The family of this 237-nucleotide sequence from Shewanella oneidensis is "FMN riboswitch aptamer (RFN element)".
RNA sequence: AACAAUUCUCAGGGCGGGGUGAAACUCCCCACCGGCGGUAAAUAGUGAGGUAAAAGAGAUUUUCCCACGCUAAAGCCCGCGAGCGCCCGAACGCAAUUUCGGGGUCAGCAGAUCUGGUGCCCUAGCAUGUCUCGCCAUGGUUAACGCCAAACGAGACCGCGCUAUUAUUCCAGAGCCGACGGUAAUGGACUGUUUGCCACUAGCGACAGUACUGAGUCCGGAUGGAAGAGAAUGUAA
Numbered sequence: 001a002a003c004a005a006u007u008c009u010c011a012g013g014g015c016g017g018g019g020u021g022a023a024a025c026u027c028c029c030c031a032c033c034g035g036c037g038g039u040a041a042a043u044a045g046u047g048a049g050g051u052a053a054a055a056g057a058g059a060u061u062u063u064c065c066c067a068c069g070c071u072a073a074a075g076c077c078c079g080c081g082a083g084c085g086c087c088c089g090a091a092c093g094c095a096a097u098u099u100c101g102g103g104g105u106c107a108g109c110a111g112a113u114c115u116g117g118u119g120c121c122c123u124a125g126c127a128u129g130u131c132u133c134g135c136c137a138u139g140g141u142u143a144a145c146g147c148c149a150a151a152c153g154a155g156a157c158c159g160c161g162c163u164a165u166u167a168u169u170c171c172a173g174a175g176c177c178g179a180c181g182g183u184a185a186u187g188g189a190c191u192g193u194u195u196g197c198c199a200c201u202a203g204c205g206a207c208a209g210u211a212c213u214g215a216g217u218c219c220g221g222a223u224g225g226a227a228g229a230g231a232a233u234g235u236a237a
Stems, first nucleotide, its partner, number of pairs: 005233006017029003033178002035080004075176002083109002113174005180220003

Source information:
NCBI's taxonomy places the organism under Bacteria, Pseudomonadati, Pseudomonadota, Gammaproteobacteria, Shewanella oneidensis.